[Rfam]
RNA sequence: UAAUAUAACCUAGGGGUCAUUGUAGCAGCGUGCUCGUCGCGACCCCUGCCGGCCCUUUUCAGGGCUGCAAUUAAACG
Number, nucleotide and partner (000 for none) at each position: 001u000002a000003a000004u000005a000006u000007a000008a000009c000010c000011u000012a000013g046014g045015g044016g043017u042018c041019a000020u000021u077022g076023u075024a000025g000026c000027a071028g040029c039030g038031u000032g000033c000034u000035c000036g000037u000038c030039g029040c028041g018042a017043c016044c015045c014046c013047u000048g000049c000050c067051g066052g065053c064054c063055c062056u061057u000058u000059u000060c000061a056062g055063g054064g053065c052066u051067g050068c000069a000070a000071u027072u000073a000074a000075a023076c022077g021
Mammalian CPEB3 ribozyme: a 77-nucleotide sequence from Parnassius apollo. The family's consensus secondary structure is taken from published work. Its family is annotated with RNA nuclease activity in the Gene Ontology.